[Rfam]
RNA: Burkholderia RNA 7 (anti-hemB)
RNA sequence: UCCCUGCUUUUCCUCCCUGAGCAGGAGCCAGAUCUGCAAGACAGCGAUUCGGCUUUCCGCCCCGGCCUUGCGCCGGGGUUUUCUUUU
Number, nucleotide and partner (000 for none) at each position: 001u000002c000003c025004c024005u023006g022007c021008u020009u000010u000011u000012c000013c000014u000015c000016c000017c000018u000019g000020a008021g007022c006023a005024g004025g003026a000027g053028c052029c051030a000031g049032a048033u047034c000035u000036g000037c000038a000039a000040g000041a000042c000043a000044g000045c000046g000047a033048u032049u031050c000051g029052g028053c027054u000055u000056u000057c000058c000059g079060c078061c077062c076063c075064g074065g073066c072067c000068u000069u000070g000071c000072g066073c065074c064075g063076g062077g061078g060079u059080u000081u000082u000083c000084u000085u000086u000087u000